[Rfam]
RNA sequence: GGCUGGUUCAAAGGUAGUGAGUUCUCUCAAUGGAUUUUUCGCACUCAGUUACAGAUCAAACUCCUUGUUCUACUCUUUCCUCCUUUUUCACUACUGUACUCAACUAGUCUUUU
Numbered sequence: 001g002g003c004u005g006g007u008u009c010a011a012a013g014g015u016a017g018u019g020a021g022u023u024c025u026c027u028c029a030a031u032g033g034a035u036u037u038u039u040c041g042c043a044c045u046c047a048g049u050u051a052c053a054g055a056u057c058a059a060a061c062u063c064c065u066u067g068u069u070c071u072a073c074u075c076u077u078u079c080c081u082c083c084u085u086u087u088u089c090a091c092u093a094c095u096g097u098a099c100u101c102a103a104c105u106a107g108u109c110u111u112u113u
Stems, first nucleotide, its partner, number of pairs: 001109008011100001014097002016092006047071002
Dot-bracket structure: ((((((((..(..((((((((.........................((.....................))...............))))))...))..).))))))))....
RNA: Y RNA